[Rfam]
RNA sequence: GAAUGAAGGAAGCACCGUAAUGUGCACAUAAAUUGACUUGGGUCUCUCGGCCUGGCCUCUGAUGCUUUUCGGCUUUGAUUUGGCCAUUUGGGGCAUGGUUCCACAACAAAACG
Dot-bracket structure: ...........((((......))))..............(.(((.....(((.............................))).......))).).................

A member of the RNA family "Small nucleolar RNA snoR100" from Rhododendron williamsianum, 113 nucleotides long. The family's RNA type in Rfam is H/ACA-box small nucleolar RNA. NCBI's taxonomy places the organism under Eukaryota, Embryophyta, Mesangiospermae, eudicotyledons, Rhododendron. Rfam 15.1 lists 1,851 matches to the family in 220 species. The base pairs follow the family's consensus structure, which was predicted with WAR.